[Rfam]
RNA: IMES-2 RNA motif
RNA sequence: AAAUUAAUUAAGAGGCAACUCUUAACUGGCCAUUUAGGGAAAAACCGAGAGGUUCAAGCUUAAAGGGCAGAAAACGGGAGACAGCAGUACUAAACAUUUCCCGUGACUGUGACGAAGGUAGUACUUCAACAGCGUCACAA
Numbered sequence: 001a002a003a004u005u006a007a008u009u010a011a012g013a014g015g016c017a018a019c020u021c022u023u024a025a026c027u028g029g030c031c032a033u034u035u036a037g038g039g040a041a042a043a044a045c046c047g048a049g050a051g052g053u054u055c056a057a058g059c060u061u062a063a064a065g066g067g068c069a070g071a072a073a074a075c076g077g078g079a080g081a082c083a084g085c086a087g088u089a090c091u092a093a094a095c096a097u098u099u100c101c102c103g104u105g106a107c108u109g110u111g112a113c114g115a116a117g118g119u120a121g122u123a124c125u126u127c128a129a130c131a132g133c134g135u136c137a138c139a140a
Base pairs, nucleotide, nucleotide: 008025009024010023011022012021013020014019026070027069028068030067031066033064034063035062036061037060038059043054044053045052046051074104075103076102077101078100079099080098081097087124088123089122090121091120109138110137111136112135113134114133117130